RNA sequence: GGCGAUAAACGCGCGUGUAAUAAGCGGUUCGGACCCGGGGGCGGUACCCGGCGGCUCCACCAAUCAUCCUCCGGUCAUUGGGCGGACUGGUAUGGGGCCGAAACAGGAUCGACGGACGUGUAAAGACGAUGCUUUCGCCCGGCCGAGCUCCGUUAGAAGCUCAUCUCAACAUAGUUGCCAAUGACAACUUUGCUGAAGGUGAACUGAUGGCCGCGUAA
Numbered sequence: 001g002g003c004g005a006u007a008a009a010c011g012c013g014c015g016u017g018u019a020a021u022a023a024g025c026g027g028u029u030c031g032g033a034c035c036c037g038g039g040g041g042c043g044g045u046a047c048c049c050g051g052c053g054g055c056u057c058c059a060c061c062a063a064u065c066a067u068c069c070u071c072c073g074g075u076c077a078u079u080g081g082g083c084g085g086a087c088u089g090g091u092a093u094g095g096g097g098c099c100g101a102a103a104c105a106g107g108a109u110c111g112a113c114g115g116a117c118g119u120g121u122a123a124a125g126a127c128g129a130u131g132c133u134u135u136c137g138c139c140c141g142g143c144c145g146a147g148c149u150c151c152g153u154u155a156g157a158a159g160c161u162c163a164u165c166u167c168a169a170c171a172u173a174g175u176u177g178c179c180a181a182u183g184a185c186a187a188c189u190u191u192g193c194u195g196a197a198g199g200u201g202a203a204c205u206g207a208u209g210g211c212c213g214c215g216u217a218a
Stems, first nucleotide, its partner, number of pairs: 001139005014128003025118002029115003035051005052100007140152003
Annotation:
Rfam assigns this 218-nucleotide sequence from Henriciella mobilis to the family "permuted transfer-messenger RNA". Gene Ontology term of the family: RNA catabolic process. Rfam's curators write: Bacterial tmRNA, also known as 10Sa RNA or SsrA, is named for its dual tRNA and mRNA-like properties.